[Rfam]
RNA: Archaeal large subunit ribosomal RNA, nucleotides 2111 to 2684
Organism: Candidatus Nanobsidianus stetteri
RNA sequence: CUUCCGAUGGGUAAAAAAGACCCCGUGAAGCUUAACCGCAGCCUGUUGUUGCUCUGAAGAACCUGGUGUGUAGGGUAGCGGGGAGCAAUGAAUUCCUGCCGCUAGGUAGGAAGGAUGCGACGAUGAAACACCCGCCUCCAGGUUCUUCAGGGCUAACCCGAAAGGGGACAGCGGCAGGUGGGCGGUUUGGCUGGGGCGGCACCUUGCCGAAAAGGUAUCGGCAGGGUCCAUAAGGUCAGCUCAGGCGGGUCAGGAAUCCGCCGUAGAGGACAAGGCCAAAAGCUGGCCUGACUGUGCCCUGACCAUCAAGGGGCACAGGGGGGAAACCCGGGCCUAGCGAACCCCGUACUCUCACUAGUGGGGGUACGGGCUGGCGGAAAAGCUACUCCGGGGGUAACAGCGCCGUCGCGGGCGAGAGCCCCCAUUGACCCCGCGGUUUGCGACAUCGAUGUCGUCUCUCCCCAUCCUGGUGGUGCAGAAGCCGCCAAGGGUGGGGGUGUCCACCCAUUAAAGGGGAUCGUGAGAUGGGUUCAGAACGCCGCGAGGCAGUUCGGUUAUAACUGUCGGAAGUGCU
Numbered sequence: 001c002u003u004c005c006g007a008u009g010g011g012u013a014a015a016a017a018a019g020a021c022c023c024c025g026u027g028a029a030g031c032u033u034a035a036c037c038g039c040a041g042c043c044u045g046u047u048g049u050u051g052c053u054c055u056g057a058a059g060a061a062c063c064u065g066g067u068g069u070g071u072a073g074g075g076u077a078g079c080g081g082g083g084a085g086c087a088a089u090g091a092a093u094u095c096c097u098g099c100c101g102c103u104a105g106g107u108a109g110g111a112a113g114g115a116u117g118c119g120a121c122g123a124u125g126a127a128a129c130a131c132c133c134g135c136c137u138c139c140a141g142g143u144u145c146u147u148c149a150g151g152g153c154u155a156a157c158c159c160g161a162a163a164g165g166g167g168a169c170a171g172c173g174g175c176a177g178g179u180g181g182g183c184g185g186u187u188u189g190g191c192u193g194g195g196g197c198g199g200c201a202c203c204u205u206g207c208c209g210a211a212a213a214g215g216u217a218u219c220g221g222c223a224g225g226g227u228c229c230a231u232a233a234g235g236u237c238a239g240c241u242c243a244g245g246c247g248g249g250u251c252a253g254g255a256a257u258c259c260g261c262c263g264u265a266g267a268g269g270a271c272a273a274g275g276c277c278a279a280a281a282g283c284u285g286g287c288c289u290g291a292c293u294g295u296g297c298c299c300u301g302a303c304c305a306u307c308a309a310g311g312g313g314c315a316c317a318g319g320g321g322g323g324a325a326a327c328c329c330g331g332g333c334c335u336a337g338c339g340a341a342c343c344c345c346g347u348a349c350u351c352u353c354a355c356u357a358g359u360g361g362g363g364g365u366a367c368g369g370g371c372u373g374g375c376g377g378a379a380a381a382g383c384u385a386c387u388c389c390g391g392g393g394g395u396a397a398c399a400g401c402g403c404c405g406u407c408g409c410g411g412g413c414g415a416g417a418g419c420c421c422c423c424a425u426u427g428a429c430c431c432c433g434c435g436g437u438u439u440g441c442g443a444c445a446u447c448g449a450u451g452u453c454g455u456c457u458c459u460c461c462c463c464a465u466c467c468u469g470g471u472g473g474u475g476c477a478g479a480a481g482c483c484g485c486c487a488a489g490g491g492u493g494g495g496g497g498u499g500u501c502c503a504c505c506c507a508u509u510a511a512a513g514g515g516g517a518u519c520g521u522g523a524g525a526u527g528g529g530u531u532c533a534g535a536a537c538g539c540c541g542c543g544a545g546g547c548a549g550u551u552c553g554g555u556u557a558u559a560a561c562u563g564u565c566g567g568a569a570g571u572g573c574u
Base pairs, nucleotide, nucleotide: 001570002569003568004567005566006565007564008563010562011561012560022392023391024390025389027388028387029384030383031382032381033380035186036185037184038183042178043177044176045175046174047173048172051153052152053151054150055149056148057147058146059145060144061143062142063141064140065139066138068136078135079134080133081132082131085118086117087116096109097108098107099106100105157166158165159164189202190200191199192198203225204224205223206222207221208220228332229331235287236286237285238284239283240282241267242266244262245261246260247259248258249257268277269276292318293317294316295315296314297313298312299311300310320329322327343370344369345368346367347366348365350364351363352362353361401442402441403440405439406436407435408434409433410432411431412430416426417425453528454526455525456524457523458520459517460516461515462514463513466491467490470485471484472483473482474481494506495505496504534552535551536550537549538547539546540545